[Rfam]
RNA sequence: GCCUGAGUGGUGAAAUUGGUAGACACACAGGACUUAAAAUCCUGCGGGGUCAAACCCGUGCCGGUUCGAGUCCGGCCUCAGGCA
Numbered sequence: 001g002c003c004u005g006a007g008u009g010g011u012g013a014a015a016u017u018g019g020u021a022g023a024c025a026c027a028c029a030g031g032a033c034u035u036a037a038a039a040u041c042c043u044g045c046g047g048g049g050u051c052a053a054a055c056c057c058g059u060g061c062c063g064g065u066u067c068g069a070g071u072c073c074g075g076c077c078u079c080a081g082g083c084a
Base pairs, nucleotide, nucleotide: 001083002082003081004080005079006078007077010026011025012024028044029043030042031041032040060076061075062074063073064072
RNA: tRNA
Organism: Acanthopleuribacter pedis